[Rfam]
RNA sequence: AAUGACAAAGGCAAACUAUUUGAAAAGAUAGGACGCAAAGUUUAGGGUCUAAGGUUUAAUACUAAUGAUCGCCUGACUACCAAUU
Numbered sequence: 001a002a003u004g005a006c007a008a009a010g011g012c013a014a015a016c017u018a019u020u021u022g023a024a025a026a027g028a029u030a031g032g033a034c035g036c037a038a039a040g041u042u043u044a045g046g047g048u049c050u051a052a053g054g055u056u057u058a059a060u061a062c063u064a065a066u067g068a069u070c071g072c073c074u075g076a077c078u079a080c081c082a083a084u085u
Stems, first nucleotide, its partner, number of pairs: 001085001003082002011036002016031006034071001039078004044074003047069003

Notes:
This 85-nucleotide sequence from Oceanobacillus limi belongs to the Rfam family "c-di-GMP-I-GGC riboswitch aptamer". The family is grouped with related families in Rfam's "c-di-GMP_I riboswitch clan". The base pairs follow the family's consensus structure, which is taken from published work. The match comes from Rfam's covariance-model search (64 bits).